[Rfam]
RNA sequence: GGAAGCGGGUGUUUAGGGACACGACUGAACAUCGCAUCACUUUAACGUAUAGAGUUUUAGUAGAUCUGUUCAGUAGGUGUUGUUCCACGUUUAUCGUAAGCUUUAAGUAGCUUUCGUGUAUCAGACUCCCGAUUGCGCGUGCACGUUCGUGGCUCACGAUCACACGGAUUUGCAUGCCUGCACGGUCCCGAGUCUUCACGCCUCUCGAAGUACCGCGAGAUCAUUUUCCAAAUUGGGGGGUAAUCGAAUCGGUCAAAGAGGGUAAUUUGACGCUUCCACAUGCAGGCACUGCAGAUGGCGGUAUGCCAUUUUUUUG
Numbered sequence: 001g002g003a004a005g006c007g008g009g010u011g012u013u014u015a016g017g018g019a020c021a022c023g024a025c026u027g028a029a030c031a032u033c034g035c036a037u038c039a040c041u042u043u044a045a046c047g048u049a050u051a052g053a054g055u056u057u058u059a060g061u062a063g064a065u066c067u068g069u070u071c072a073g074u075a076g077g078u079g080u081u082g083u084u085c086c087a088c089g090u091u092u093a094u095c096g097u098a099a100g101c102u103u104u105a106a107g108u109a110g111c112u113u114u115c116g117u118g119u120a121u122c123a124g125a126c127u128c129c130c131g132a133u134u135g136c137g138c139g140u141g142c143a144c145g146u147u148c149g150u151g152g153c154u155c156a157c158g159a160u161c162a163c164a165c166g167g168a169u170u171u172g173c174a175u176g177c178c179u180g181c182a183c184g185g186u187c188c189c190g191a192g193u194c195u196u197c198a199c200g201c202c203u204c205u206c207g208a209a210g211u212a213c214c215g216c217g218a219g220a221u222c223a224u225u226u227u228c229c230a231a232a233u234u235g236g237g238g239g240g241u242a243a244u245c246g247a248a249u250c251g252g253u254c255a256a257a258g259a260g261g262g263u264a265a266u267u268u269g270a271c272g273c274u275u276c277c278a279c280a281u282g283c284a285g286g287c288a289c290u291g292c293a294g295a296u297g298g299c300g301g302u303a304u305g306c307c308a309u310u311u312u313u314u315u316g
Stems, first nucleotide, its partner, number of pairs: 001277007016086005025073003029069003034066001036065003039061003045055001285307003288302005
This 316-nucleotide RNA from Temnothorax curvispinosus belongs to the Rfam family "Arthropod 7SK RNA".
Its Rfam clan is "7SK clan".
The organism belongs to Temnothorax, within Eukaryota.
A reference for the family is Gruber et al. (2008), "Arthropod 7SK RNA", Mol Biol Evol.
The family has 19 seed sequences and 229 matches in Rfam 15.1.
The family's consensus secondary structure is taken from published work.